RNA sequence: UUAGUAUUAUCUUAUGAGAAAGGAAAAUAUCGAUUCAUGGUGACAUCCCAAUCCUAACUGCUAAAUAUGAGAUUUAUUUUUGAGCUGGUAAAGGUUGCCCCUAAGGUUGCCACCUGCCUACUUUGUGGGAUGCCUGGAAGUCCCGAUCUGCCCA
Numbered sequence: 001u002u003a004g005u006a007u008u009a010u011c012u013u014a015u016g017a018g019a020a021a022g023g024a025a026a027a028u029a030u031c032g033a034u035u036c037a038u039g040g041u042g043a044c045a046u047c048c049c050a051a052u053c054c055u056a057a058c059u060g061c062u063a064a065a066u067a068u069g070a071g072a073u074u075u076a077u078u079u080u081u082g083a084g085c086u087g088g089u090a091a092a093g094g095u096u097g098c099c100c101c102u103a104a105g106g107u108u109g110c111c112a113c114c115u116g117c118c119u120a121c122u123u124u125g126u127g128g129g130a131u132g133c134c135u136g137g138a139a140g141u142c143c144c145g146a147u148c149u150g151c152c153c154a
Stems, first nucleotide, its partner, number of pairs: 005022001007020002032053004039046001054071002057068001087152003092149006102137001104135004113129005

Rfam assigns this 154-nucleotide sequence from Ictidomys tridecemlineatus to the family "U12 minor spliceosomal RNA". The literature on the family includes a 1997 paper in Trends Biochem Sci by Tarn and Steitz, "Pre-mRNA splicing: the discovery of a new spliceosome doubles the challenge". It scores 62 bits against the family's covariance model. It is annotated as a spliceosomal small nuclear RNA. Rfam 15.1 lists 2,106 matches to the family in 1,170 species. NCBI's taxonomy places the organism under Eukaryota, Craniata, Gnathostomata, Xerinae, Ictidomys.